RNA sequence: GGGUGCCCACCCCCACGGGGUGGCAGGAUUUGCGUCGGUCGGGCCGCCACG
Dot-bracket structure: ....(((.((((.....)))))))........(((.(((......))))))
Numbered sequence: 001g002g003g004u005g006c007c008c009a010c011c012c013c014c015a016c017g018g019g020g021u022g023g024c025a026g027g028a029u030u031u032g033c034g035u036c037g038g039u040c041g042g043g044c045c046g047c048c049a050c051g
Stems, first nucleotide, its partner, number of pairs: 005024003009021004033051003037048003
Rfam assigns this 51-nucleotide RNA sequence from Cupriavidus gilardii to the family "nhaA-I RNA".
The base pairs follow the family's consensus structure, which is taken from published work.
The family's RNA type in Rfam is riboswitch.
The match comes from Rfam's covariance-model search (48 bits).
Acidobacteria, Alphaproteobacteria, Betaproteobacteria and Gammaproteobacteria, Verrucomicrobia, cand. division NC10.
Lineage of the source: Bacteria > Pseudomonadati > Betaproteobacteria > Cupriavidus > Cupriavidus gilardii.